[Rfam]
RNA sequence: UUGAAAUCGGGGGCUGGGAAGCCUGCUCUGUAGACGGUCACCUUGAGCAGGGGGAGCAAAUGGUGAGACCGACCCGGCGGAGG
Numbered sequence: 001u002u003g004a005a006a007u008c009g010g011g012g013g014c015u016g017g018g019a020a021g022c023c024u025g026c027u028c029u030g031u032a033g034a035c036g037g038u039c040a041c042c043u044u045g046a047g048c049a050g051g052g053g054g055a056g057c058a059a060a061u062g063g064u065g066a067g068a069c070c071g072a073c074c075c076g077g078c079g080g081a082g083g
Base pairs, nucleotide, nucleotide: 001083002082007077008076009075010074011073013057014056022051023050024049025048026047027046028045036070037069038066039065040064041063042062
RNA: c-di-GMP-II-GAG riboswitch aptamer